[Rfam]
RNA sequence: GGGAGUGGGUGCAUGAUCGCUGGCGGUGUUUUACCGCAAGAGGAAAGUCCGGACUCCGCAGGGCAGGGAGGUUCGUAACACGAACUGGGGGCGACCCCGAGGAAAGUGCCACAGAAAACAGACCGCCGGGCAACCGGUAAGGGUGAAAAGGUGGGGUAAGAGCCCACCGCUUGCGUGGCGACACGGAAGGCACGGCAAACCCCUCCUGGAGCAAAACCAAAUAGGGAAGCGUUUGAGGGCGGCCCGCCCGAAGCUUCCGGGUAGGUUGCAAGAGAUGCCGGGCAACCGGCAUCCACAGAGAAAUGAUCAUGGCCCUUGCGAAAGGGUACAGAAUCCGGCUUAUAGCCCACUCCCUUUU
Number, nucleotide and partner (000 for none) at each position: 001g354002g353003g352004a351005g350006u349007g348008g347009g346010u345011g343012c311013a310014u309015g308016a307017u306018c305019g000020c040021u039022g000023g037024c036025g035026g034027u033028g032029u000030u000031u000032u028033a027034c026035c025036g024037c023038a000039a021040g020041a000042g000043g000044a000045a341046a340047g339048u000049c338050c337051g336052g335053a334054c211055u210056c209057c208058g000059c000060a000061g245062g244063g243064c242065a000066g207067g206068g205069a204070g203071g085072u084073u083074c082075g081076u000077a000078a000079c000080a000081c075082g074083a073084a072085c071086u100087g098088g097089g096090g095091g000092c000093g000094a000095c090096c089097c088098c087099g000100a086101g202102g201103a000104a000105a000106g200107u199108g196109c195110c194111a000112c000113a000114g000115a000116a000117a000118a000119c000120a000121g000122a000123c142124c141125g138126c137127c136128g135129g134130g000131c000132a000133a000134c129135c128136g127137g126138u125139a000140a000141g124142g123143g000144u000145g000146a000147a000148a000149a000150g168151g167152u166153g165154g164155g163156g000157u000158a000159a000160g000161a000162g000163c155164c154165c153166a152167c151168c150169g191170c189171u188172u187173g000174c185175g184176u183177g182178g000179c000180g000181a000182c177183a176184c175185g174186g000187a172188a171189g170190g000191c169192a000193c000194g110195g109196c108197a000198a000199a107200c106201c102202c101203c070204u069205c068206c067207u066208g057209g056210a055211g054212c000213a000214a000215a267216a266217c265218c264219a000220a000221a000222u000223a000224g000225g258226g257227a256228a255229g254230c253231g000232u000233u000234u000235g000236a000237g249238g248239g247240c246241g000242g064243c063244c062245c061246g240247c239248c238249c237250g000251a000252a000253g230254c229255u228256u227257c226258c225259g000260g000261g000262u000263a000264g218265g217266u216267u215268g000269c000270a000271a000272g000273a000274g293275a292276u291277g290278c289279c288280g287281g286282g000283c000284a000285a000286c281287c280288g279289g278290c277291a276292u275293c274294c000295a000296c000297a000298g000299a000300g000301a000302a000303a000304u000305g018306a017307u016308c015309a014310u013311g012312g000313c000314c000315c000316u000317u000318g000319c000320g000321a000322a000323a000324g000325g000326g000327u000328a000329c000330a000331g000332a000333a000334u053335c052336c051337g050338g049339c047340u046341u045342a000343u011344a000345g010346c009347c008348c007349a006350c005351u004352c003353c002354c001355u000356u000357u000358u000